[Rfam]
Nucleotides: 072
Base pairs, nucleotide, nucleotide: 001071002070003069004068005067006066007065010024011023012022013021026042027041028040029039030038048064049063050062051061052060
Number, partner (000 for none) and nucleotide at each position: 001071g002070c003069c004068g005067c006066a007065g008000u009000a010024g011023c012022u013021c014000a015000g016000u017000g018000g019000u020000a021013g022012a023011g024010c025000g026042c027041a028040u029039c030038a031000u032000u033000g034000g035000u036000a037000a038030u039029g040028a041027u042026g043000a044000g045000g046000u047000c048064g049063g050062g051061a052060g053000u054000u055000c056000a057000a058000u059000u060052c061051u062050c063049c064048c065007u066006u067005g068004c069003g070002g071001c072000a
The record is a 72-nucleotide RNA sequence from Hyphobacterium sp. CCMP332, which matches "tRNA" in Rfam. Pairs were carried over by alignment from the consensus structure, which is taken from published work. The organism belongs to Hyphobacterium, within Bacteria. A search with the family's covariance model found it, with a score of 73 bits.